[Rfam]
RNA sequence: ACAUGAGGUAGAGGUGCAUAUUUCAAUAGUACACAGACAAAUGCUAUAAGGAGCAAAAGAAGUUUGUGAAAAGGGAAAUUUGCCGAAGAAAGAGCUAGCCUUAUAUUUCUCUUUCUGGUUGUGCAGUUAAUAGCUGUACGACUGUCAUCUUUUUAAAGAUGGAGCGCUACAAAUUAU
Numbered sequence: 001a002c003a004u005g006a007g008g009u010a011g012a013g014g015u016g017c018a019u020a021u022u023u024c025a026a027u028a029g030u031a032c033a034c035a036g037a038c039a040a041a042u043g044c045u046a047u048a049a050g051g052a053g054c055a056a057a058a059g060a061a062g063u064u065u066g067u068g069a070a071a072a073g074g075g076a077a078a079u080u081u082g083c084c085g086a087a088g089a090a091a092g093a094g095c096u097a098g099c100c101u102u103a104u105a106u107u108u109c110u111c112u113u114u115c116u117g118g119u120u121g122u123g124c125a126g127u128u129a130a131u132a133g134c135u136g137u138a139c140g141a142c143u144g145u146c147a148u149c150u151u152u153u154u155a156a157a158g159a160u161g162g163a164g165c166g167c168u169a170c171a172a173a174u175u176a177u
Stems, first nucleotide, its partner, number of pairs: 008170004016083003020079005032068007087116008097106001117143011145162007

Rfam assigns this 177-nucleotide RNA sequence from Clostridium sp. MD294 to the family "Lysine riboswitch aptamer". Pairs were carried over by alignment from the consensus structure, which is taken from published work. The source organism's lineage runs through Bacteria, Bacillota, Clostridia, Eubacteriales and Clostridium.